[Rfam]
The record is a 139-nucleotide RNA, which matches "poplar-1 RNA" in Rfam. It is annotated as a small RNA.

RNA sequence: GUUGAGCCGAGGGGCCUUGCGGAAACGACAGACAGCGCUGUCAGAAACCGUAGCAAGUGAGCCCGCACCACGUUGACAGCUGAUGCGCUCGUGAUGAAAUACUGUGCCUUUCGCAAGGGGCACUUCAGACAGUAGCUUA
Number, nucleotide and partner (000 for none) at each position: 001g000002u000003u000004g000005a000006g000007c000008c000009g000010a000011g000012g064013g063014g062015c061016c000017u000018u055019g054020c053021g000022g000023a000024a000025a000026c000027g000028a000029c000030a000031g042032a041033c040034a039035g000036c000037g000038c000039u034040g033041u032042c031043a000044g000045a000046a000047a000048c000049c000050g000051u000052a000053g020054c019055a018056a000057g000058u000059g000060a000061g015062c014063c013064c012065g000066c096067a095068c000069c093070a092071c091072g090073u000074u000075g000076a000077c000078a000079g000080c128081u127082g126083a125084u000085g000086c000087g000088c000089u000090c072091g071092u070093g069094a000095u067096g066097a000098a000099a000100u134101a133102c132103u131104g000105u122106g121107c120108c119109u118110u000111u000112c000113g000114c000115a000116a000117g000118g109119g108120g107121c106122a105123c000124u000125u083126c082127a081128g080129a000130c000131a103132g102133u101134a100135g000136c000137u000138u000139a000

The sequence is in the family's curated seed alignment.